Shown here is a 170-nucleotide RNA from Paraflavisolibacter caeni, a member of the family "Group II catalytic intron D1-D4-3". NCBI's taxonomy places the organism under Bacteria, Bacteroidota, Chitinophagales, Chitinophagaceae, Paraflavisolibacter. The base pairs follow the family's consensus structure.
[Rfam]
RNA sequence: UGUGGAGUAAUCCAUGCACUGAAGUAAGCCAGACUGCAAAGGAUUGCACUGACGGACAGGAACUGCAUAGGAGGCAUCAGUGGACGGACGAGCAGCCACAUCCCUGUAAAGUCCUAAAUGACUGAGUUCACUGAUGUAGAUGCAGCAGCGGUAAUCCGAAGGCUAUUUAC
Numbered sequence: 001u002g003u004g005g006a007g008u009a010a011u012c013c014a015u016g017c018a019c020u021g022a023a024g025u026a027a028g029c030c031a032g033a034c035u036g037c038a039a040a041g042g043a044u045u046g047c048a049c050u051g052a053c054g055g056a057c058a059g060g061a062a063c064u065g066c067a068u069a070g071g072a073g074g075c076a077u078c079a080g081u082g083g084a085c086g087g088a089c090g091a092g093c094a095g096c097c098a099c100a101u102c103c104c105u106g107u108a109a110a111g112u113c114c115u116a117a118a119u120g121a122c123u124g125a126g127u128u129c130a131c132u133g134a135u136g137u138a139g140a141u142g143c144a145g146c147a148g149c150g151g152u153a154a155u156c157c158g159a160a161g162g163c164u165a166u167u168u169a170c
Stems, first nucleotide, its partner, number of pairs: 001016006028170001031167002036163002041157006047150001049148003063145006074137003078133007086114004092107004